[Rfam]
The family of this 407-nucleotide RNA sequence from Calderihabitans maritimus is "Bacterial RNase P class A".
About the family: Ribonuclease P (RNase P) is a ubiquitous endoribonuclease, found in archaea, bacteria and eukarya as well as chloroplasts and mitochondria.
For this family Rfam cites "The Ribonuclease P Database" (Brown, Nucleic Acids Res, 1999).
Rfam links the family to the GO terms dimeric ribonuclease P complex, tRNA processing and ribonuclease P activity.
RNA sequence: UGAGUAAAUCAGGUGAUCGCGGGUACAAAUGCCGAAAGGCUGUACCUGAGGAAAGUCCGAGCUCCACAGGGCAGGGUGCUGGGUAACACCCAGUGGGGGCGACCCUAAGGAAAGUGCCACAGAAAACAAACCGCCCGGCACUUAGUUUGCCGUACAAGGAUAACUUAACUAACAAUUUUAGCGCGGCAAACUAAGUGCCGGGUAAGGGUGAAACGGUGAGGUAAGAGCUCACCAGCAGCCAGGCGACUGGCUGGCUUGGUAAACCCCACCUGGAGCAAGACCGAAUAGGGGAACAAUGGAGUGGCCCGCUCCGUUCCCGGGUAAGGUCGCUAGAGGUGUUAGGCAACUAACACCCCAGACAGAUGAUCACCCAACGACAGAACUCGGCUUAUCGAUUUGCUCAAUUG
Numbered sequence: 001u002g003a004g005u006a007a008a009u010c011a012g013g014u015g016a017u018c019g020c021g022g023g024u025a026c027a028a029a030u031g032c033c034g035a036a037a038g039g040c041u042g043u044a045c046c047u048g049a050g051g052a053a054a055g056u057c058c059g060a061g062c063u064c065c066a067c068a069g070g071g072c073a074g075g076g077u078g079c080u081g082g083g084u085a086a087c088a089c090c091c092a093g094u095g096g097g098g099g100c101g102a103c104c105c106u107a108a109g110g111a112a113a114g115u116g117c118c119a120c121a122g123a124a125a126a127c128a129a130a131c132c133g134c135c136c137g138g139c140a141c142u143u144a145g146u147u148u149g150c151c152g153u154a155c156a157a158g159g160a161u162a163a164c165u166u167a168a169c170u171a172a173c174a175a176u177u178u179u180a181g182c183g184c185g186g187c188a189a190a191c192u193a194a195g196u197g198c199c200g201g202g203u204a205a206g207g208g209u210g211a212a213a214c215g216g217u218g219a220g221g222u223a224a225g226a227g228c229u230c231a232c233c234a235g236c237a238g239c240c241a242g243g244c245g246a247c248u249g250g251c252u253g254g255c256u257u258g259g260u261a262a263a264c265c266c267c268a269c270c271u272g273g274a275g276c277a278a279g280a281c282c283g284a285a286u287a288g289g290g291g292a293a294c295a296a297u298g299g300a301g302u303g304g305c306c307c308g309c310u311c312c313g314u315u316c317c318c319g320g321g322u323a324a325g326g327u328c329g330c331u332a333g334a335g336g337u338g339u340u341a342g343g344c345a346a347c348u349a350a351c352a353c354c355c356c357a358g359a360c361a362g363a364u365g366a367u368c369a370c371c372c373a374a375c376g377a378c379a380g381a382a383c384u385c386g387g388c389u390u391a392u393c394g395a396u397u398u399g400c401u402c403a404a405u406u407g
Stems, first nucleotide, its partner, number of pairs: 001403010011392001012371007020048008053390003057387005062275004069307004074271005079093005094108001095106004109266002114264002116260003131207002133203021215233006235255001236253007279328004289318006298312005335354008